Shown here is a 102-nucleotide RNA sequence from Populus tomentosa, a member of the family "MIR480 microRNA precursor family". For this family Rfam cites "Novel and mechanical stress-responsive MicroRNAs in Populus trichocarpa that are absent from Arabidopsis" (Lu et al., Plant Cell, 2005). The base pairs follow the family's consensus structure, which was predicted with WAR. The source organism's lineage runs through Eukaryota, rosids, Malpighiales, Salicaceae and Populus.

[Rfam]
RNA sequence: UAAUUUAUCCAAGGUAUAUCUUUAUUUGGUUAUGACAGACUCAUAUUUAAUUGCUUAUAAUUACCGGUGAGAACUAUCAUAUGAAUAAUAAUUUUUUAAAAU
Numbered sequence: 001u002a003a004u005u006u007a008u009c010c011a012a013g014g015u016a017u018a019u020c021u022u023u024a025u026u027u028g029g030u031u032a033u034g035a036c037a038g039a040c041u042c043a044u045a046u047u048u049a050a051u052u053g054c055u056u057a058u059a060a061u062u063a064c065c066g067g068u069g070a071g072a073a074c075u076a077u078c079a080u081a082u083g084a085a086u087a088a089u090a091a092u093u094u095u096u097u098a099a100a101a102u
Stems, first nucleotide, its partner, number of pairs: 004100004014089002019084001023081003027076005

The match comes from Rfam's covariance-model search (57 bits).